[Rfam]
RNA: SAM (S-adenosyl methionine) riboswitch aptamer
RNA sequence: GGUCACGAGUGCCAGCGUUCAGCCCCGGCUUGCUGGCCGGCAACCCUCGUCGAGUUCGCGGUGGGGUGCCCCGGGUGAUGACCGGGCCCAGCCCGAUCCUCGUGCUGGGCAAGCGCGGACC
Numbered sequence: 001g002g003u004c005a006c007g008a009g010u011g012c013c014a015g016c017g018u019u020c021a022g023c024c025c026c027g028g029c030u031u032g033c034u035g036g037c038c039g040g041c042a043a044c045c046c047u048c049g050u051c052g053a054g055u056u057c058g059c060g061g062u063g064g065g066g067u068g069c070c071c072c073g074g075g076u077g078a079u080g081a082c083c084g085g086g087c088c089c090a091g092c093c094c095g096a097u098c099c100u101c102g103u104g105c106u107g108g109g110c111a112a113g114c115g116c117g118g119a120c121c
Base pairs, nucleotide, nucleotide: 001083002082003081004080009038011037012036013035014034015033016032021030022029039070040069041068044066045065046064048061086110087109088108089107090106091105092104094102095101